[Rfam]
RNA sequence: GGUUCUGUUUGUAGGUAACAGAAAGAAGCAGAUCUAUUUUAUACCUGAUAAGUACCAAUACUAGGG
Numbered sequence: 001g002g003u004u005c006u007g008u009u010u011g012u013a014g015g016u017a018a019c020a021g022a023a024a025g026a027a028g029c030a031g032a033u034c035u036a037u038u039u040u041a042u043a044c045c046u047g048a049u050a051a052g053u054a055c056c057a058a059u060a061c062u063a064g065g066g
Base pairs, nucleotide, nucleotide: 003023004022006020007019008018009017010015044065045064046063052061053060054059

The family of this 66-nucleotide RNA from Carpinus fangiana is "Plastid-clpP 5UTR RNA". A reference for the family is Richter et al. (2023), "Retrograde signaling in plants: A critical review focusing on the GUN pathway and beyond", Plant Commun. The organism belongs to Carpinus, within Eukaryota. The family has 343 seed sequences and 2,105 matches in Rfam 15.1.